Overview
Small nucleolar RNA SNORA32: a 121-nucleotide sequence from Salvator merianae. Rfam describes the family as follows. ACA32 is a member of the H/ACA class of snoRNA that guide the sites of modification of uridines to pseudouridines. The source organism's lineage runs through Eukaryota, Chordata, Gnathostomata, Euteleostomi and Salvator. Rfam links the family to the GO terms RNA processing and nucleolus. The family has 9 seed sequences and 615 matches in Rfam 15.1.
[Rfam]
RNA sequence: UGGUCUCUACCAAGGCUGCUAGAAGAUGCCAUUUCUGGUAUGCUGUGGACGUGACCAUAAAGUAACUCCUAUGGAUCUUUGCACAGCUACUACGGUAGUUUCAGAUCUGCUGGAAACAGUG
Numbered sequence: 001u002g003g004u005c006u007c008u009a010c011c012a013a014g015g016c017u018g019c020u021a022g023a024a025g026a027u028g029c030c031a032u033u034u035c036u037g038g039u040a041u042g043c044u045g046u047g048g049a050c051g052u053g054a055c056c057a058u059a060a061a062g063u064a065a066c067u068c069c070u071a072u073g074g075a076u077c078u079u080u081g082c083a084c085a086g087c088u089a090c091u092a093c094g095g096u097a098g099u100u101u102c103a104g105a106u107c108u109g110c111u112g113g114a115a116a117c118a119g120u121g
Base pairs, nucleotide, nucleotide: 003055004054005053007051010048011047012046028043029042067114068113069112074107075106076105077104085100086099087098